A member of the RNA family "MIR2617 microRNA precursor family" from Medicago truncatula, 85 nucleotides long. Its family is annotated with miRNA-mediated post-transcriptional gene silencing and RISC complex in the Gene Ontology. The organism belongs to Medicago, within Eukaryota. The base pairs follow the family's consensus structure, which was predicted with RNAalifold.
[Rfam]
Nucleotides: 085
Stems, first nucleotide, its partner, number of pairs: 004085001005083001007081008016073004
Number, partner (000 for none) and nucleotide at each position: 001000a002000u003000g004085u005083a006000g007081u008080g009079u010078a011077g012076c013075a014074u015000g016073c017072c018071c019070g020000u021000u022000u023000g024000g025000u026000g027000c028000u029000u030000a031000a032000c033000u034000c035000u036000g037000a038000u039000g040000a041000u042000u043000a044000u045000u046000u047000u048000a049000u050000a051000u052000u053000u054000a055000a056000u057000a058000u059000a060000u061000u062000u063000g064000g065000g066000a067000u068000u069000u070019c071018g072017g073016g074014g075013u076012g077011u078010u079009a080008c081007a082000g083005u084000c085004a